RNA sequence: UGUCAUUCUCAGGGCAGGGUGCAAUUCCCUACCGGCGGUGAUUUCCUCUUGUCGAGGAUAAGCCCGCGAGCGCCUGCUGGCAACAGCAGGGUCAGCAGAUCCGGUGGGACUCCGGAGCCGACGGUCAUAGUCCGGAUGGGAGAGAAAACGG
Number, nucleotide and partner (000 for none) at each position: 001u000002g000003u000004c000005a000006u146007u145008c144009u143010c142011a000012g000013g000014g000015c000016a000017g029018g028019g027020u000021g000022c000023a000024a000025u000026u000027c019028c018029c017030u000031a131032c130033c120034g119035g067036c066037g065038g064039u000040g000041a000042u000043u000044u000045c000046c000047u000048c000049u000050u000051g000052u000053c000054g000055a000056g000057g000058a000059u000060a000061a000062g118063c117064c038065c037066g036067c035068g000069a000070g096071c095072g000073c000074c000075u000076g000077c000078u000079g000080g000081c000082a000083a000084c000085a000086g000087c000088a000089g000090g000091g000092u000093c000094a000095g071096c070097a000098g000099a000100u116101c115102c114103g113104g112105u000106g000107g000108g000109a000110c000111u000112c104113c103114g102115g101116a100117g063118c062119c034120g033121a000122c134123g133124g132125u000126c000127a000128u000129a000130g032131u031132c124133c123134g122135g000136a000137u000138g000139g000140g000141a000142g010143a009144g008145a007146a006147a000148a000149c000150g000151g000
Source information:
Shown here is a 151-nucleotide sequence, a member of the family "FMN riboswitch aptamer (RFN element)". The base pairs follow the family's consensus structure, which is taken from published work. It scores 111 bits against the family's covariance model.